[Rfam]
RNA sequence: AACGCCGAAUCCUGCCGCCGUCCGAGAAACCGACCCACUUGUCCAUGGCAGGAGCGGGGGAACCAGGUAAGCCGCCGGUCCGGUAUCCGGAACGGCUCGGGGUGAAGUCGCAUUCCGUGCGGCCAGACAUCUCCAGUCUGAACCCGACAGCUCACCUCGCAGGCGACGGAGAGGAAUUCA
Numbered sequence: 001a002a003c004g005c006c007g008a009a010u011c012c013u014g015c016c017g018c019c020g021u022c023c024g025a026g027a028a029a030c031c032g033a034c035c036c037a038c039u040u041g042u043c044c045a046u047g048g049c050a051g052g053a054g055c056g057g058g059g060g061a062a063c064c065a066g067g068u069a070a071g072c073c074g075c076c077g078g079u080c081c082g083g084u085a086u087c088c089g090g091a092a093c094g095g096c097u098c099g100g101g102g103u104g105a106a107g108u109c110g111c112a113u114u115c116c117g118u119g120c121g122g123c124c125a126g127a128c129a130u131c132u133c134c135a136g137u138c139u140g141a142a143c144c145c146g147a148c149a150g151c152u153c154a155c156c157u158c159g160c161a162g163g164c165g166a167c168g169g170a171g172a173g174g175a176a177u178u179c180a
Base pairs, nucleotide, nucleotide: 003165004164005163006162010053011052012051013050014049015048016047017046054160055159056158057157058156059155064099100145101144102143108122109121110120111119125139126138127137128136